[Rfam]
RNA sequence: CUACCACACGACGUAAAACUUGGUGUAGCUUCGGUAGAUAACUGCUUGGACAGGGAUUCGACUUCCCUCACCUCCACUUCAACUUGCUCCCUCGGGGGUGCCACGGUUUCGACAAGUAGGGGAUUUCGCCAGAGUGAAAGCUGCUUGCAUAAGCACAAAACAAACGCCAACAAAAUCGUUGCCUUUCAUCGUCAGGCAGUUUCCUGCGCCUGAACUAAUCGGUGAAUGGGGUUAGGUUAGCCUUGUUACCAAAAUAACCCACAGGCCCUGAGAGGGGCC
Numbered sequence: 001c002u003a004c005c006a007c008a009c010g011a012c013g014u015a016a017a018a019c020u021u022g023g024u025g026u027a028g029c030u031u032c033g034g035u036a037g038a039u040a041a042c043u044g045c046u047u048g049g050a051c052a053g054g055g056a057u058u059c060g061a062c063u064u065c066c067c068u069c070a071c072c073u074c075c076a077c078u079u080c081a082a083c084u085u086g087c088u089c090c091c092u093c094g095g096g097g098g099u100g101c102c103a104c105g106g107u108u109u110c111g112a113c114a115a116g117u118a119g120g121g122g123a124u125u126u127c128g129c130c131a132g133a134g135u136g137a138a139a140g141c142u143g144c145u146u147g148c149a150u151a152a153g154c155a156c157a158a159a160a161c162a163a164a165c166g167c168c169a170a171c172a173a174a175a176u177c178g179u180u181g182c183c184u185u186u187c188a189u190c191g192u193c194a195g196g197c198a199g200u201u202u203c204c205u206g207c208g209c210c211u212g213a214a215c216u217a218a219u220c221g222g223u224g225a226a227u228g229g230g231g232u233u234a235g236g237u238u239a240g241c242c243u244u245g246u247u248a249c250c251a252a253a254a255u256a257a258c259c260c261a262c263a264g265g266c267c268c269u270g271a272g273a274g275g276g277g278c279c
Stems, first nucleotide, its partner, number of pairs: 007025003011021001013019001028135003033130003038124002042119007052068005069100007142155005192214001195211002223251002225247008264279006